[Rfam]
RNA sequence: UGCGUUUUUCGCCCAGGCGGAGCUCGACCGCCGUCUGAAGUCCUGAAGAGCUUCAUUGACCAGCAUCGUCAGGCCUAUGGGGUCGAGUCGAUCUGCAGGGUGCUGCAGAUCGCCCCG
Numbered sequence: 001u002g003c004g005u006u007u008u009u010c011g012c013c014c015a016g017g018c019g020g021a022g023c024u025c026g027a028c029c030g031c032c033g034u035c036u037g038a039a040g041u042c043c044u045g046a047a048g049a050g051c052u053u054c055a056u057u058g059a060c061c062a063g064c065a066u067c068g069u070c071a072g073g074c075c076u077a078u079g080g081g082g083u084c085g086a087g088u089c090g091a092u093c094u095g096c097a098g099g100g101u102g103c104u105g106c107a108g109a110u111c112g113c114c115c116c117g
Stems, first nucleotide, its partner, number of pairs: 016032005078117005089112002092109007
Shown here is a 117-nucleotide sequence from Simplicispira sp. 125, a member of the family "ALIL pseudoknot". Taxonomically the source falls in Simplicispira (Bacteria, Pseudomonadota, Betaproteobacteria, Comamonadaceae). Rfam links the family to the GO term positive regulation of translational frameshifting. A search with the family's covariance model found it, with a score of 116 bits. Pairs were carried over by alignment from the consensus structure, which is taken from published work.